This 81-nucleotide RNA from Panthera leo belongs to the Rfam family "mir-150 microRNA precursor family". Lineage of the source: Eukaryota > Bilateria > Sarcopterygii > Carnivora > Panthera. Its family is annotated with miRNA-mediated post-transcriptional gene silencing and RISC complex in the Gene Ontology. The match comes from Rfam's covariance-model search (84 bits). The literature on the family includes a 2010 paper in BMC Genomics by Linsen et al., "Small RNA expression and strain specificity in the rat".
RNA sequence: GCUCACGGCCCUGUCUCCCAACCCUUGUACCAGUGCUGUGGCUCAGUCCCUGGUACAGGUAUGGGGGGCAGGGACGUGUGG
Dot-bracket structure: .........(((.(((((...((..(((((((..................)))))))))....))))).))).........